RNA sequence: GGGUGGUGUGAAGCAUUUUGUUCUCAAAAGGAACGGAACUUCUCCCGAAGCACAUCGUCCAUUUUUCCACAAUUGCUAAUUAUCCUGCAACGAUAAUGUUACAUAAGAUAAUACAGCGAAAGCCUUCGGGCGUUGACAGUGAAAGGUGUCUAAUACUUCAGACAUUAGUCAAUGAAGUCAUCAGUUAGAACGCAAUUCUCCUGAUGUCAAUCACGAAAUACCUGGUGGGACGGCCAUCCCUUAGAGAGUUCGCAAGACUUUACAGAGUAGAGUAACGGUUGAGUAGCUGGCAACGAAAAGAGUGGUAAACUUAAAUUACCGACACUGACUCGAUACUACGGGCAAUCGUAGUGGACAAUGUGAGGAACCGAUUCAAUGGAUAAUCUCACGAAAGACGGGUCACAUAAACGUGUAGUCUCAGCGU
Numbered sequence: 001g002g003g004u005g006g007u008g009u010g011a012a013g014c015a016u017u018u019u020g021u022u023c024u025c026a027a028a029a030g031g032a033a034c035g036g037a038a039c040u041u042c043u044c045c046c047g048a049a050g051c052a053c054a055u056c057g058u059c060c061a062u063u064u065u066u067c068c069a070c071a072a073u074u075g076c077u078a079a080u081u082a083u084c085c086u087g088c089a090a091c092g093a094u095a096a097u098g099u100u101a102c103a104u105a106a107g108a109u110a111a112u113a114c115a116g117c118g119a120a121a122g123c124c125u126u127c128g129g130g131c132g133u134u135g136a137c138a139g140u141g142a143a144a145g146g147u148g149u150c151u152a153a154u155a156c157u158u159c160a161g162a163c164a165u166u167a168g169u170c171a172a173u174g175a176a177g178u179c180a181u182c183a184g185u186u187a188g189a190a191c192g193c194a195a196u197u198c199u200c201c202u203g204a205u206g207u208c209a210a211u212c213a214c215g216a217a218a219u220a221c222c223u224g225g226u227g228g229g230a231c232g233g234c235c236a237u238c239c240c241u242u243a244g245a246g247a248g249u250u251c252g253c254a255a256g257a258c259u260u261u262a263c264a265g266a267g268u269a270g271a272g273u274a275a276c277g278g279u280u281g282a283g284u285a286g287c288u289g290g291c292a293a294c295g296a297a298a299a300g301a302g303u304g305g306u307a308a309a310c311u312u313a314a315a316u317u318a319c320c321g322a323c324a325c326u327g328a329c330u331c332g333a334u335a336c337u338a339c340g341g342g343c344a345a346u347c348g349u350a351g352u353g354g355a356c357a358a359u360g361u362g363a364g365g366a367a368c369c370g371a372u373u374c375a376a377u378g379g380a381u382a383a384u385c386u387c388a389c390g391a392a393a394g395a396c397g398g399g400u401c402a403c404a405u406a407a408a409c410g411u412g413u414a415g416u417c418u419c420a421g422c423g424u
Base pairs, nucleotide, nucleotide: 001060002059003058004057005056006055007054008053009052010042011041012040013039017037018036019035020034021033022032023031024030044130045129046128047127048126049125050124116193117192131295132294133293134292135291137289138288139287140286146325147324148323149322150321155178156177157176158175159174160173161170162169163168179206180205181204182203183202187199188198189197190196209280210279211278212277222265223264224263227240228239229238230237245261246260247259249257250256304320305319306318307317308316327401328400329399331397332396334353335352336351337350338349339348340347341346354417355416356415360389361388362387363386364385365384409423410422411421
The family of this 424-nucleotide sequence is "Giant, ornate, lake- and Lactobacillales-derived (GOLLD) RNA". The sequence is in the family's curated seed alignment. By type it is a non-coding RNA gene.